[Rfam]
RNA: mir-221 microRNA precursor family
RNA sequence: CGCGAGACUCAGAGCCCAGUGUAGAUCCUGCCUCGUGCACACAGCAGCUACAUUUGACUACUGGGUCUCUGGUGCCAACC
Numbered sequence: 001c002g003c004g005a006g007a008c009u010c011a012g013a014g015c016c017c018a019g020u021g022u023a024g025a026u027c028c029u030g031c032c033u034c035g036u037g038c039a040c041a042c043a044g045c046a047g048c049u050a051c052a053u054u055u056g057a058c059u060a061c062u063g064g065g066u067c068u069c070u071g072g073u074g075c076c077a078a079c080c
Stems, first nucleotide, its partner, number of pairs: 009064004014059001017056002019053006028047004